[Rfam]
RNA sequence: GAUGGUUUCGUCGCUUUUCAUUAUAGAUCUUAUGGGACUUUUUUCUACAAUAAAAUAGGCUCCAUAAUAUCUAUAGGGGGUUACCCACUACAAAUAUUAUAGAGCC
Numbered sequence: 001g002a003u004g005g006u007u008u009c010g011u012c013g014c015u016u017u018u019c020a021u022u023a024u025a026g027a028u029c030u031u032a033u034g035g036g037a038c039u040u041u042u043u044u045c046u047a048c049a050a051u052a053a054a055a056u057a058g059g060c061u062c063c064a065u066a067a068u069a070u071c072u073a074u075a076g077g078g079g080g081u082u083a084c085c086c087a088c089u090a091c092a093a094a095u096a097u098u099a100u101a102g103a104g105c106c
Stems, first nucleotide, its partner, number of pairs: 001018002005014002025040002028037002058106005064100007074090003078086002
RNA: Streptococcus RNA 266
Organism: Streptococcus sp. DD10